Shown here is a 78-nucleotide RNA sequence from Flavobacterium psychrophilum, a member of the family "Flavo-1 RNA". The source organism's lineage runs through Bacteria, Bacteroidota, Flavobacteriia, Flavobacteriaceae and Flavobacterium psychrophilum. It is annotated as a small RNA.
[Rfam]
RNA sequence: UUUUAGCCCUGAUGGUAACGGCAUCCUUUUGCUUUUUUCUUUAGAAAGCAAAAGAUAGAGUGAACAGCAGGAAUAGCU
Numbered sequence: 001u002u003u004u005a006g007c008c009c010u011g012a013u014g015g016u017a018a019c020g021g022c023a024u025c026c027u028u029u030u031g032c033u034u035u036u037u038u039c040u041u042u043a044g045a046a047a048g049c050a051a052a053a054g055a056u057a058g059a060g061u062g063a064a065c066a067g068c069a070g071g072a073a074u075a076g077c078u
Stems, first nucleotide, its partner, number of pairs: 009070003013066002018061002023056003028052010